[Rfam]
RNA sequence: GCUUCGCCUGCCCAGUGUUCAGACUACCUGUUCAGGGUGUUCCAGGUGUACAGUAGUCUGCACAUUGGUUAGGCUAUGUG
Numbered sequence: 001g002c003u004u005c006g007c008c009u010g011c012c013c014a015g016u017g018u019u020c021a022g023a024c025u026a027c028c029u030g031u032u033c034a035g036g037g038u039g040u041u042c043c044a045g046g047u048g049u050a051c052a053g054u055a056g057u058c059u060g061c062a063c064a065u066u067g068g069u070u071a072g073g074c075u076a077u078g079u080g
Stems, first nucleotide, its partner, number of pairs: 012068007020060007028053004033048002

Shown here is an 80-nucleotide RNA from Esox lucius, a member of the family "mir-199 microRNA precursor family". Its family is annotated with RISC complex and miRNA-mediated post-transcriptional gene silencing in the Gene Ontology. The base pairs follow the family's consensus structure, which was predicted with RNAalifold. A search with the family's covariance model found it, with a score of 91 bits.